[Rfam]
RNA sequence: CCUGCCCAAAAGGAGUUUACAGUCUAGAGGGGAGAGAGGCAUUAAUGUAAAUCAGUAAAUUUCAGAUAUACAUACAUACAUAUAUAUAUUAUACUGUAUGUAUAUCUGAAAUUUACUGAUUUACAUUAAUGCCUCUCUCCCCUCUAGACUGUAAACUCCUUUUGGGCAGG
Number, nucleotide and partner (000 for none) at each position: 001c170002c169003u168004g167005c166006c165007c164008a163009a162010a161011a160012g159013g158014a157015g156016u155017u154018u153019a152020c151021a150022g149023u148024c147025u146026a145027g144028a143029g142030g137031g136032g135033a134034g133035a000036g000037a000038g000039g000040c000041a000042u000043u000044a000045a000046u000047g000048u000049a000050a000051a000052u000053c000054a000055g000056u000057a000058a000059a000060u000061u000062u000063c000064a000065g000066a000067u000068a000069u000070a000071c000072a000073u000074a000075c000076a000077u000078a000079c000080a000081u000082a000083u000084a000085u000086a000087u000088a000089u000090u000091a000092u000093a000094c000095u000096g000097u000098a000099u000100g000101u000102a000103u000104a000105u000106c000107u000108g000109a000110a000111a000112u000113u000114u000115a000116c000117u000118g000119a000120u000121u000122u000123a000124c000125a000126u000127u000128a000129a000130u000131g000132c000133c034134u033135c032136u031137c030138u000139c000140c000141c000142c029143u028144c027145u026146a025147g024148a023149c022150u021151g020152u019153a018154a017155a016156c015157u014158c013159c012160u011161u010162u009163u008164g007165g006166g005167c004168a003169g002170g001
RNA: mir-28 microRNA precursor family